[Rfam]
Nucleotides: 150
Stems, first nucleotide, its partner, number of pairs: 004023005032053007054071005085149004091145007100133001102130005108124005
Number, partner (000 for none) and nucleotide at each position: 001000a002000u003000g004023c005022c006021u007020u008019a009000a010000a011000c012000u013000a014000a015000u016000g017000a018000g019008u020007a021006a022005g023004g024000a025000a026000a027000a028000u029000a030000a031000u032053g033052a034051g035050c036049u037048c038047g039000g040000g041000u042000a043000a044000c045000g046000a047038c048037g049036g050035g051034c052033u053032c054071c055070u056069g057068g058067a059000c060000u061000a062000a063000g064000u065000a066000u067058u068057c069056c070055a071054g072000a073000g074000g075000a076000u077000u078000u079000u080000u081000u082000c083000a084000c085149g086148g087147g088146u089000a090000c091145a092144g093143g094142u095141c096140g097139c098000c099000c100133u101000c102130a103129g104128g105127u106126g107000g108124c109123c110122c111121g112120c113000c114000u115000a116000c117000u118000u119000u120112g121111c122110g123109g124108g125000c126106u127105g128104c129103c130102u131000g132000c133100a134000u135000g136000g137000a138000u139097g140096u141095g142094a143093u144092c145091u146088g147087c148086c149085c150000a
U12 minor spliceosomal RNA: a 150-nucleotide RNA from Pomacea canaliculata. It is annotated as a spliceosomal small nuclear RNA. Rfam links the family to the GO terms pre-mRNA branch point binding, mRNA branch site recognition and U12 snRNP. A search with the family's covariance model found it, with a score of 117 bits. Clan: U2 clan. The family has 62 seed sequences and 2,106 matches in Rfam 15.1. The organism belongs to Pomacea, within Eukaryota.